[Rfam]
RNA sequence: AUGAUCCCCGCGGAAGAGACCGGGCUUUGCCCGGCGCCGAAGGCGCAACCGCCCCGGAAACGCUCAGGCCAAAGGACCGCGUGGGAGCU
Numbered sequence: 001a002u003g004a005u006c007c008c009c010g011c012g013g014a015a016g017a018g019a020c021c022g023g024g025c026u027u028u029g030c031c032c033g034g035c036g037c038c039g040a041a042g043g044c045g046c047a048a049c050c051g052c053c054c055c056g057g058a059a060a061c062g063c064u065c066a067g068g069c070c071a072a073a074g075g076a077c078c079g080c081g082u083g084g085g086a087g088c089u
Stems, first nucleotide, its partner, number of pairs: 006084002009081005020034004036069003039065002043063003049057002

Shown here is an 89-nucleotide sequence from Microvirga vignae, a member of the family "Glycine riboswitch aptamer". NCBI's taxonomy places the organism under Bacteria, Pseudomonadati, Pseudomonadota, Alphaproteobacteria, Microvirga. Pairs were carried over by alignment from the consensus structure. The match comes from Rfam's covariance-model search (70 bits). Gene Ontology term of the family: glycine biosynthetic process.